[Rfam]
The record is a 150-nucleotide RNA sequence from Fimbriiglobus ruber, which matches "SAM riboswitch aptamer (S box leader)" in Rfam.

RNA sequence: AUCUUAUCCAGAGUGGCUGAGGGUUCAGGCCCUGAGACGCCACAGCAACCGGUCGGCUCGGUGGAUCGCCAGAUCCGCGGGGUCGAUGCUGGUGCUACCUCCUGCCCGAUACCCGCAACCCGUAAGGGUUGCAGUCGGGGCAGAUAAGAU
Numbered sequence: 001a002u003c004u005u006a007u008c009c010a011g012a013g014u015g016g017c018u019g020a021g022g023g024u025u026c027a028g029g030c031c032c033u034g035a036g037a038c039g040c041c042a043c044a045g046c047a048a049c050c051g052g053u054c055g056g057c058u059c060g061g062u063g064g065a066u067c068g069c070c071a072g073a074u075c076c077g078c079g080g081g082g083u084c085g086a087u088g089c090u091g092g093u094g095c096u097a098c099c100u101c102c103u104g105c106c107c108g109a110u111a112c113c114c115g116c117a118a119c120c121c122g123u124a125a126g127g128g129u130u131g132c133a134g135u136c137g138g139g140g141c142a143g144a145u146a147a148g149a150u
Base pairs, nucleotide, nucleotide: 001150002149003148004147005146006145007144008143013043014042015041016040017039021032022031023030026104027103028102029101044096045095046094047093049092050091052087053086054085055084056083057082058081059080100142105139106138107137108136109135110134
A search with the family's covariance model found it, with a score of 68 bits.